[Rfam]
Rfam assigns this 34-nucleotide RNA sequence from Ibidorhyncha struthersii to the family "Prion pseudoknot".

RNA sequence: CCACGGAGGUGGCUGGGGACCCCAUGGUGGCUGG
Numbered sequence: 001c002c003a004c005g006g007a008g009g010u011g012g013c014u015g016g017g018g019a020c021c022c023c024a025u026g027g028u029g030g031c032u033g034g
Stems, first nucleotide, its partner, number of pairs: 001027003005023002
Description
This family represents a predicted pseudoknot structure found in prion protein mRNA. It has been suggested that the family has a possible effect in prion protein translation. The literature on the family includes a 2001 paper in Nucleic Acids Res by Barrette et al., "Pseudoknots in prion protein mRNAs confirmed by comparative sequence analysis and pattern searching". Rfam links the family to the GO term translation.